[Rfam]
RNA sequence: UCAUCAUCACCAUCAUCCUGCUUAGUCUUUCGGGAGAUGCGCGCAUACCCGGGGGGCAGGAAACUCCCGGUGUUUAAAAUCAAAGAAUUCAGAUUUAAAACCCUCGGGAGACCAGAAUCUUCCGAGGGUUUUUUCGU
Numbered sequence: 001u002c003a004u005c006a007u008c009a010c011c012a013u014c015a016u017c018c019u020g021c022u023u024a025g026u027c028u029u030u031c032g033g034g035a036g037a038u039g040c041g042c043g044c045a046u047a048c049c050c051g052g053g054g055g056g057c058a059g060g061a062a063a064c065u066c067c068c069g070g071u072g073u074u075u076a077a078a079a080u081c082a083a084a085g086a087a088u089u090c091a092g093a094u095u096u097a098a099a100a101c102c103c104u105c106g107g108g109a110g111a112c113c114a115g116a117a118u119c120u121u122c123c124g125a126g127g128g129u130u131u132u133u134u135c136g137u
Stems, first nucleotide, its partner, number of pairs: 009046001011039004017034004048070002051068005097132014
Shown here is a 137-nucleotide sequence from Vibrio proteolyticus, a member of the family "Histidine operon leader". At least 6 amino acid operons are known to be regulated by attenuation. In each a leader sequence of 150-200 bp is found upstream of the first gene in the operon. This leader sequence can assume two different secondary structures known as the terminator and the anti-terminator structure. The family's consensus secondary structure is taken from published work. Gene Ontology term of the family: histidine biosynthetic process. Lineage of the source: Bacteria > Pseudomonadati > Gammaproteobacteria > Vibrionales > Vibrio proteolyticus.